[Rfam]
RNA sequence: GGACCAUCCCGAGCGGUUGAGAGAUCUGGCUCUUUGACACCGCAGCAACCAUCCGGCCUCCCGGAAAGGUGCUACCGCCAGAAGCGAUGGAGA
Numbered sequence: 001g002g003a004c005c006a007u008c009c010c011g012a013g014c015g016g017u018u019g020a021g022a023g024a025u026c027u028g029g030c031u032c033u034u035u036g037a038c039a040c041c042g043c044a045g046c047a048a049c050c051a052u053c054c055g056g057c058c059u060c061c062c063g064g065a066a067a068g069g070u071g072c073u074a075c076c077g078c079c080a081g082a083a084g085c086g087a088u089g090g091a092g093a
Stems, first nucleotide, its partner, number of pairs: 004090005013043005021032003026081004044073004049069002052065004077085001